[Rfam]
RNA sequence: GGGCCGGCUCUAGCCCAGCGGUUCCUUCGGUUUGUUGCCAUUGUUUCGCUCCGGGCCCCGACUGGGGUUCGAUCCCGCGGGCACCCCUGGCCCAUUU
Numbered sequence: 001g002g003g004c005c006g007g008c009u010c011u012a013g014c015c016c017a018g019c020g021g022u023u024c025c026u027u028c029g030g031u032u033u034g035u036u037g038c039c040a041u042u043g044u045u046u047c048g049c050u051c052c053g054g055g056c057c058c059c060g061a062c063u064g065g066g067g068u069u070c071g072a073u074c075c076c077g078c079g080g081g082c083a084c085c086c087c088u089g090g091c092c093c094a095u096u097u
Base pairs, nucleotide, nucleotide: 002092003091004090005089006088007087013082014081015080016079018078019077020076021075027072028071029070030069

This 97-nucleotide sequence from Alectura lathami belongs to the Rfam family "Vault RNA". The family's consensus secondary structure is taken from published work. Lineage of the source: Eukaryota > Euteleostomi > Archosauria > Dinosauria > Alectura. It scores 56 bits against the family's covariance model. The literature on the family includes a 2009 paper in Mol Biol Evol by Stadler et al., "Evolution of Vault RNAs".